The record is a 175-nucleotide RNA from Falsibacillus pallidus, which matches "glmS glucosamine-6-phosphate activated ribozyme aptamer" in Rfam. Rfam describes the family as follows. This entry contains a glucosamine-6-phosphate activated ribozyme that is found in the mRNA for GlmS. GlmS is an enzyme that uses fructose-6-phosphate and glutamine to generate glucosamine-6-phosphate. The ribozyme catalyses self cleavage of the glmS mRNA that is thought to regulate GlmS activity. The source organism's lineage runs through Bacteria, Bacillati, Bacillota, Bacilli and Falsibacillus. The family's RNA type in Rfam is riboswitch. The match comes from Rfam's covariance-model search (120 bits).
RNA sequence: AAAUAAAAUAAAGCGCCUGAACUAAUCUUCCUGAACGGACAUCGGAGGAUUAGUUGACGAGGAGGAGGAUUAUCGAGUUUUCGGCGGAUACCUCCCGGUUGAAUAGCACAACCGUAAUCUUUUUCUUAAAGCGACCGAGGCAACUUGGCGUACAAAGGAGAAAGAAUGCCACUUA
Numbered sequence: 001a002a003a004u005a006a007a008a009u010a011a012a013g014c015g016c017c018u019g020a021a022c023u024a025a026u027c028u029u030c031c032u033g034a035a036c037g038g039a040c041a042u043c044g045g046a047g048g049a050u051u052a053g054u055u056g057a058c059g060a061g062g063a064g065g066a067g068g069a070u071u072a073u074c075g076a077g078u079u080u081u082c083g084g085c086g087g088a089u090a091c092c093u094c095c096c097g098g099u100u101g102a103a104u105a106g107c108a109c110a111a112c113c114g115u116a117a118u119c120u121u122u123u124u125c126u127u128a129a130a131g132c133g134a135c136c137g138a139g140g141c142a143a144c145u146u147g148g149c150g151u152a153c154a155a156a157g158g159a160g161a162a163a164g165a166a167u168g169c170c171a172c173u174u175a
Stems, first nucleotide, its partner, number of pairs: 020055008029046003064095005073084004096114006118165007132150002135148005
Dot-bracket structure: ...................((((((((.(((............))).))))))))........(((((....((((....))))......)))))((((((.......))))))...(((((((.......((.(((((....)))))))........)))))))..........